[Rfam]
RNA sequence: CGCUGGAAAGUCGCCUAGGGACCUCGGUCCUGGGGGCGCGCCGACGGAGCAAGACGCCUACUUGGCGUCGGAAUCUCUCAGGCUUCAGGACAGCG
Numbered sequence: 001c002g003c004u005g006g007a008a009a010g011u012c013g014c015c016u017a018g019g020g021a022c023c024u025c026g027g028u029c030c031u032g033g034g035g036g037c038g039c040g041c042c043g044a045c046g047g048a049g050c051a052a053g054a055c056g057c058c059u060a061c062u063u064g065g066c067g068u069c070g071g072a073a074u075c076u077c078u079c080a081g082g083c084u085u086c087a088g089g090a091c092a093g094c095g
Stems, first nucleotide, its partner, number of pairs: 001095005012038004040083003043079002047077003055070002
Dot-bracket structure: (((((......((((...................)))).(((((..(((.....((............))....))))).))).......)))))